Shown here is a 74-nucleotide RNA sequence from Hibiscus trionum, a member of the family "tRNA". Rfam classes the family as a transfer RNA. The match comes from Rfam's covariance-model search (60 bits).

RNA sequence: GCUUUCGUAGCUCAGUUGGUUAGAACACCCGUUUAGUAAGCGGGAGGUCUUGAGUUCAACUCUCAACGAAAGCA
Numbered sequence: 001g002c003u004u005u006c007g008u009a010g011c012u013c014a015g016u017u018g019g020u021u022a023g024a025a026c027a028c029c030c031g032u033u034u035a036g037u038a039a040g041c042g043g044g045a046g047g048u049c050u051u052g053a054g055u056u057c058a059a060c061u062c063u064c065a066a067c068g069a070a071a072g073c074a
Stems, first nucleotide, its partner, number of pairs: 001073007010026001012024002028044005050066005